RNA: mir-142 microRNA precursor family
RNA sequence: CAGGACACUCAUCCAUAAAGUAGGAAACACUACACCGUGCAGUGCCGUCUAGUAGUGCUUUCUACUUUAUGGGUGACUGCACUGU
Numbered sequence: 001c002a003g004g005a006c007a008c009u010c011a012u013c014c015a016u017a018a019a020g021u022a023g024g025a026a027a028c029a030c031u032a033c034a035c036c037g038u039g040c041a042g043u044g045c046c047g048u049c050u051a052g053u054a055g056u057g058c059u060u061u062c063u064a065c066u067u068u069a070u071g072g073g074u075g076a077c078u079g080c081a082c083u084g085u
Stems, first nucleotide, its partner, number of pairs: 014071010026059001028057006